Shown here is a 265-nucleotide sequence from Medicago truncatula, a member of the family "MIR2655 microRNA precursor family". Its family is annotated with miRNA-mediated post-transcriptional gene silencing and RISC complex in the Gene Ontology. The family's consensus secondary structure was predicted with RNAalifold.

[Rfam]
RNA sequence: CCCAUAAGUAAUAAAAGGUCUAUUUAGAUCCCUUAACUUUAUUUAAAGUAUCACUUUGGUCCUUUCUGUUAAUUUAAUUAAAAAAAUGUUAAGUUUAGGGACCAAACUAAUACUAAUUAAAUAAGUUAAGGGAUUAAACUAAUACUAAUUAAAUAAGUUAAGAGACCAAAAUUUAACGUUUUUUGAAUUAAAUUAAGAGAAAGGACCAAAUUGAUACUUUAAAUAAAGUUAGCGGAUCUAAAUGGACUUUUUAUUACUUAUGGGA
Numbered sequence: 001c002c003c004a005u006a007a008g009u010a011a012u013a014a015a016a017g018g019u020c021u022a023u024u025u026a027g028a029u030c031c032c033u034u035a036a037c038u039u040u041a042u043u044u045a046a047a048g049u050a051u052c053a054c055u056u057u058g059g060u061c062c063u064u065u066c067u068g069u070u071a072a073u074u075u076a077a078u079u080a081a082a083a084a085a086a087u088g089u090u091a092a093g094u095u096u097a098g099g100g101a102c103c104a105a106a107c108u109a110a111u112a113c114u115a116a117u118u119a120a121a122u123a124a125g126u127u128a129a130g131g132g133a134u135u136a137a138a139c140u141a142a143u144a145c146u147a148a149u150u151a152a153a154u155a156a157g158u159u160a161a162g163a164g165a166c167c168a169a170a171a172u173u174u175a176a177c178g179u180u181u182u183u184u185g186a187a188u189u190a191a192a193u194u195a196a197g198a199g200a201a202a203g204g205a206c207c208a209a210a211u212u213g214a215u216a217c218u219u220u221a222a223a224u225a226a227a228g229u230u231a232g233c234g235g236a237u238c239u240a241a242a243u244g245g246a247c248u249u250u251u252u253a254u255u256a257c258u259u260a261u262g263g264g265a
Base pairs, nucleotide, nucleotide: 002263003262004261005260006259007258008257023242024241025240027238028237029236031234033232034231035230036229037228038227039226040225041224042223043222045220046219047218
Dot-bracket structure: .(((((((..............(((.(((.(.(((((((((((.(((..........................................................................................................................................................................))).))))))))))).).))).)))..............)))))))..